[Rfam]
RNA sequence: UACAGAGUAGAAAGUACGCAUAAAGUGCCGAUGGACGGGAAGUUGCUGUCGGACGACGCGGUCGAAAUACGACCGGAUGAUGUGCUUUCGCAUCCGCUGUC
Numbered sequence: 001u002a003c004a005g006a007g008u009a010g011a012a013a014g015u016a017c018g019c020a021u022a023a024a025g026u027g028c029c030g031a032u033g034g035a036c037g038g039g040a041a042g043u044u045g046c047u048g049u050c051g052g053a054c055g056a057c058g059c060g061g062u063c064g065a066a067a068u069a070c071g072a073c074c075g076g077a078u079g080a081u082g083u084g085c086u087u088u089c090g091c092a093u094c095c096g097c098u099g100u101c
Base pairs, nucleotide, nucleotide: 002100003099004098005097010089011088012087013086014085015084016083017082018081019079020078021077025054026053028052029051030050031049032048033047034046038095039094040093042091059075060074061073062072063071064070

Notes
Shown here is a 101-nucleotide sequence from Ruminococcaceae bacterium BL-4, a member of the family "THF (Tetrahydrofolate) riboswitch aptamer". The source organism's lineage runs through Bacteria, Bacillati, Clostridia, Eubacteriales and Oscillospiraceae. The literature on the family includes a 2010 paper in Chem Biol by Ames et al., "A eubacterial riboswitch class that senses the coenzyme tetrahydrofolate". It scores 65 bits against the family's covariance model.